[Rfam]
RNA: Ribosomal S15 leader
RNA sequence: UAGCCCACCUGUAAAUAUGCACGGGUGCGGCCGUAAUCUCUGUCGCAUAUUAAUUUGAGGAAAACAUCAUGGCACUGAGUGCUGUUGAAAAAGCUGCUGUAGUAAAAGAGUACCAACAAGCUGAA
Numbered sequence: 001u002a003g004c005c006c007a008c009c010u011g012u013a014a015a016u017a018u019g020c021a022c023g024g025g026u027g028c029g030g031c032c033g034u035a036a037u038c039u040c041u042g043u044c045g046c047a048u049a050u051u052a053a054u055u056u057g058a059g060g061a062a063a064a065c066a067u068c069a070u071g072g073c074a075c076u077g078a079g080u081g082c083u084g085u086u087g088a089a090a091a092a093g094c095u096g097c098u099g100u101a102g103u104a105a106a107a108g109a110g111u112a113c114c115a116a117c118a119a120g121c122u123g124a125a
Base pairs, nucleotide, nucleotide: 007026008025009024010023011022012021054078055077057075059073